The family of this 74-nucleotide RNA is "U1A polyadenylation inhibition element (PIE)".
Rfam's curators write: This family represents the U1A polyadenylation inhibition element (PIE). PIE is a regulatory RNA which is responsible for the regulation of the length of the polyA tail of the U1A pre-mRNA. The PIE is located in the U1A mRNA 3' UTR. PIE adopts a U-shaped structure, with binding sites for a single U1A protein at each bend and when complexed with the two proteins it blocks activity of poly(A) polymerase (PAP), and inhibits its activity.
Rfam links the family to the GO term regulation of mRNA polyadenylation.
The base pairs follow the family's consensus structure, which is taken from published work.
Rfam's curators put it in the seed alignment.
Rfam 15.1 lists 510 matches to the family in 331 species.

RNA sequence: CCACACAGCAUUGUAUCCAGAGUCUGUCCCCAGACAUUGCACCUGGGGUGCUACGCUCUCUGGUCGAGUCAACU
Numbered sequence: 001c002c003a004c005a006c007a008g009c010a011u012u013g014u015a016u017c018c019a020g021a022g023u024c025u026g027u028c029c030c031c032a033g034a035c036a037u038u039g040c041a042c043c044u045g046g047g048g049u050g051c052u053a054c055g056c057u058c059u060c061u062g063g064u065c066g067a068g069u070c071a072a073c074u
Base pairs, nucleotide, nucleotide: 005052008049009048017046018045019044020043022035023034024033025032026031